[Rfam]
RNA sequence: AAUGAUCUUCAGGGCGAGGUGAAAUUCCUCAUCGGUGGUAAAGUCCACGGGCCUUAGGGCAGAAUUGGUGCAACUCCAAUACCGACGGUGACAGUCCGGAUGGAAGAAGAUGUCU
Numbered sequence: 001a002a003u004g005a006u007c008u009u010c011a012g013g014g015c016g017a018g019g020u021g022a023a024a025u026u027c028c029u030c031a032u033c034g035g036u037g038g039u040a041a042a043g044u045c046c047a048c049g050g051g052c053c054u055u056a057g058g059g060c061a062g063a064a065u066u067g068g069u070g071c072a073a074c075u076c077c078a079a080u081a082c083c084g085a086c087g088g089u090g091a092c093a094g095u096c097c098g099g100a101u102g103g104a105a106g107a108a109g110a111u112g113u114c115u
Stems, first nucleotide, its partner, number of pairs: 005111006017029003031095002033084002035048004043082002051060003064080005086098003
Shown here is a 115-nucleotide RNA sequence from Aedoeadaptatus coxii, a member of the family "FMN riboswitch aptamer (RFN element)". The match comes from Rfam's covariance-model search (104 bits). NCBI's taxonomy places the organism under Bacteria, Bacillati, Bacillota, Tissierellia, Aedoeadaptatus. The base pairs follow the family's consensus structure, which is taken from published work. About the family: The RFN element is a highly conserved domain that is found frequently in the 5'-untranslated regions of prokaryotic mRNAs that encode for flavin mononucleotide (FMN) biosynthesis and transport proteins.